About this RNA: Rfam assigns this 108-nucleotide sequence from Turnera subulata to the family "Small nucleolar RNA Z107/R87". A search with the family's covariance model found it, with a score of 104 bits. The literature on the family includes a 2001 paper in J Mol Biol by Barneche et al., "Identification of 66 box C/D snoRNAs in Arabidopsis thaliana: extensive gene duplications generated multiple isoforms predicting new ribosomal RNA 2'-O-methylation sites". NCBI's taxonomy places the organism under Eukaryota, Viridiplantae, Embryophyta, Mesangiospermae, Turnera. It is annotated as a C/D-box small nucleolar RNA.

[Rfam]
RNA sequence: GAUCGCGGUGACGACUCGGUAAAAUUCAAGCUCAACAGACCGGAAUGCAGGAUUCUUCUUUUCAACGGAGAAUUUUGCGUGUCGAUCUUCCCGCUGAACUGAGCGAUC
Numbered sequence: 001g002a003u004c005g006c007g008g009u010g011a012c013g014a015c016u017c018g019g020u021a022a023a024a025u026u027c028a029a030g031c032u033c034a035a036c037a038g039a040c041c042g043g044a045a046u047g048c049a050g051g052a053u054u055c056u057u058c059u060u061u062u063c064a065a066c067g068g069a070g071a072a073u074u075u076u077g078c079g080u081g082u083c084g085a086u087c088u089u090c091c092c093g094c095u096g097a098a099c100u101g102a103g104c105g106a107u108c
Stems, first nucleotide, its partner, number of pairs: 001108006